[Rfam]
RNA sequence: UGCCAUGAUGGUGUAAUUUGCGUCUGAGCCUGUGAACAGUGACGGUUGCCUGCCGUCUCUAAGCUGUCACAGAGUAUUGAUGUCCUUUAAAUCUGAGCA
Numbered sequence: 001u002g003c004c005a006u007g008a009u010g011g012u013g014u015a016a017u018u019u020g021c022g023u024c025u026g027a028g029c030c031u032g033u034g035a036a037c038a039g040u041g042a043c044g045g046u047u048g049c050c051u052g053c054c055g056u057c058u059c060u061a062a063g064c065u066g067u068c069a070c071a072g073a074g075u076a077u078u079g080a081u082g083u084c085c086u087u088u089a090a091a092u093c094u095g096a097g098c099a
Base pairs, nucleotide, nucleotide: 001099002098003097021082022081023080024079030072031071032070033069034068039064040063041057042056043055044054045053